A member of the RNA family "Mammalian CPEB3 ribozyme" from Alligator sinensis, 75 nucleotides long.
The base pairs follow the family's consensus structure, which is taken from published work.
It scores 53 bits against the family's covariance model.
NCBI's taxonomy places the organism under Eukaryota, Chordata, Vertebrata, Tetrapoda, Alligator.

RNA sequence: AAAGGUCAUCUGGAGACCACAGCAGAAGCACUCAUGGUGCAGCUGUCAGAUUCCAGCAAAUCUGCAAGCUCUGCU
Numbered sequence: 001a002a003a004g005g006u007c008a009u010c011u012g013g014a015g016a017c018c019a020c021a022g023c024a025g026a027a028g029c030a031c032u033c034a035u036g037g038u039g040c041a042g043c044u045g046u047c048a049g050a051u052u053c054c055a056g057c058a059a060a061u062c063u064g065c066a067a068g069c070u071c072u073g074c075u
Base pairs, nucleotide, nucleotide: 013043017042021075022074023073024072025071026070028040029039030038047064048063049062050061051060052059